The record is a 305-nucleotide RNA sequence from Thalictrum thalictroides, which matches "Plant signal recognition particle RNA" in Rfam.
The source organism's lineage runs through Eukaryota, Streptophyta, Tracheophyta, Spermatophyta and Thalictrum.
Pairs were carried over by alignment from the consensus structure, which is taken from published work.
It is annotated as a non-coding RNA gene.
Rfam links the family to the GO terms SRP-dependent cotranslational protein targeting to membrane, signal sequence recognition and signal recognition particle, endoplasmic reticulum targeting.
RNA sequence: GCCGAGCUCAGCAACGCGGGCUUAUAACUCGAGUGAGGGCAUUAAGGUGAUUGGACUUGGGCUUGGCAUUGUCUGGUUGGGCUUGUGGUGCCAUAUACUGACUUGCCCGUUCCAAGUUGAGAGUUGGGCUAUGUGGAACGGGCGAAGGCCUGUGCCACUUGGUUCCUAGAUAGGAGGGCACCUCGUCAGGCUGGUUUCACAGAGCAGCGAAAACCUCCCUCUCUCGACAGUGGAAGGAUAACGAGACGAGUGCUCCAUGAGUCCACAAUGGCCAGAUGGGCCCAGUCCAAAGGACAAUCACUUUU
Numbered sequence: 001g002c003c004g005a006g007c008u009c010a011g012c013a014a015c016g017c018g019g020g021c022u023u024a025u026a027a028c029u030c031g032a033g034u035g036a037g038g039g040c041a042u043u044a045a046g047g048u049g050a051u052u053g054g055a056c057u058u059g060g061g062c063u064u065g066g067c068a069u070u071g072u073c074u075g076g077u078u079g080g081g082c083u084u085g086u087g088g089u090g091c092c093a094u095a096u097a098c099u100g101a102c103u104u105g106c107c108c109g110u111u112c113c114a115a116g117u118u119g120a121g122a123g124u125u126g127g128g129c130u131a132u133g134u135g136g137a138a139c140g141g142g143c144g145a146a147g148g149c150c151u152g153u154g155c156c157a158c159u160u161g162g163u164u165c166c167u168a169g170a171u172a173g174g175a176g177g178g179c180a181c182c183u184c185g186u187c188a189g190g191c192u193g194g195u196u197u198c199a200c201a202g203a204g205c206a207g208c209g210a211a212a213a214c215c216u217c218c219c220u221c222u223c224u225c226g227a228c229a230g231u232g233g234a235a236g237g238a239u240a241a242c243g244a245g246a247c248g249a250g251u252g253c254u255c256c257a258u259g260a261g262u263c264c265a266c267a268a269u270g271g272c273c274a275g276a277u278g279g280g281c282c283c284a285g286u287c288c289a290a291a292g293g294a295c296a297a298u299c300a301c302u303u304u305u
Base pairs, nucleotide, nucleotide: 001040002039003038004023005022006021007020008019009018028037029036030035044304045303046302047301048300049299050298051297052296053295056292057291058289059288060287062285063284065282066281067280069279070278071277072276073275074274075273076272077271078270079264080263081262082261083260084259085258086257088255090253092252093251098250099248100247102245103244104243105242107237108236110235111234112233113232114231116228117227118226119225120224121223122222123221126165127164128163129162130161131160133158134157135156136155138153139152140151141150142149143148173218174217175216176215177214183210184209185208186207191202192201193200